[Rfam]
RNA: Archaeal large subunit ribosomal RNA, nucleotides 1719 to 2075
RNA sequence: CGGCACACCCUGGCCAAGGGAAUUCGGCAAAUUAGCCCCGUAACUUCGGGAUAAGGGGUGCCUGCUCCGUGAGGAGCAGGUCGCAGUGACGAGGGAGCGCUGACUGUCUAAUAACAACAUAGCUGAUCGCCAAAUCGUAAGAUCUAGUACGAUCAGUGAAUCCUGCCCAGUGCGGGUACCUGAAAACCUCGUACAAGGGGAAGAAGGGCCCGUCAACGGCGGGGGUAACUAUAACCCUCUUAAGGUAGCGUAGUACCUUGCCGCUUAAUUGGCGGCUUGCAUGAAUGGAUCAACGAGCGCUCUACUGUCCCUGGCCAGGCGCCGGUGAACAUUACAUCCUAGUGCAGAGUCUAGGGA
Numbered sequence: 001c002g003g004c005a006c007a008c009c010c011u012g013g014c015c016a017a018g019g020g021a022a023u024u025c026g027g028c029a030a031a032u033u034a035g036c037c038c039c040g041u042a043a044c045u046u047c048g049g050g051a052u053a054a055g056g057g058g059u060g061c062c063u064g065c066u067c068c069g070u071g072a073g074g075a076g077c078a079g080g081u082c083g084c085a086g087u088g089a090c091g092a093g094g095g096a097g098c099g100c101u102g103a104c105u106g107u108c109u110a111a112u113a114a115c116a117a118c119a120u121a122g123c124u125g126a127u128c129g130c131c132a133a134a135u136c137g138u139a140a141g142a143u144c145u146a147g148u149a150c151g152a153u154c155a156g157u158g159a160a161u162c163c164u165g166c167c168c169a170g171u172g173c174g175g176g177u178a179c180c181u182g183a184a185a186a187c188c189u190c191g192u193a194c195a196a197g198g199g200g201a202a203g204a205a206g207g208g209c210c211c212g213u214c215a216a217c218g219g220c221g222g223g224g225g226u227a228a229c230u231a232u233a234a235c236c237c238u239c240u241u242a243a244g245g246u247a248g249c250g251u252a253g254u255a256c257c258u259u260g261c262c263g264c265u266u267a268a269u270u271g272g273c274g275g276c277u278u279g280c281a282u283g284a285a286u287g288g289a290u291c292a293a294c295g296a297g298c299g300c301u302c303u304a305c306u307g308u309c310c311c312u313g314g315c316c317a318g319g320c321g322c323c324g325g326u327g328a329a330c331a332u333u334a335c336a337u338c339c340u341a342g343u344g345c346a347g348a349g350u351c352u353a354g355g356g357a
Stems, first nucleotide, its partner, number of pairs: 001324004009319008018310003035059005044049001060081009082086001094303007101295002105119003122157008130147001134143003160290004165220003170217002172213005179208003187200004221239006240244001260276006338355005